[Rfam]
RNA sequence: UUGUAAUUCAAAAUAUAAAGAUGAACACAAUUUUAAACAAUACUUGGUGGUGGAAUAAUUUACGUCAAAAGUCGUGAACUAAUCCUCUAUUGUAUUUUUAAAUUCAAAAUAUAAAAAGGCUUGUC
Dot-bracket structure: ...................................((..((((...(.((.(...((.(((((.......))...))).)).).)).)...))))..))..........................
RNA: Bacteroidete tryptophan peptide leader RNA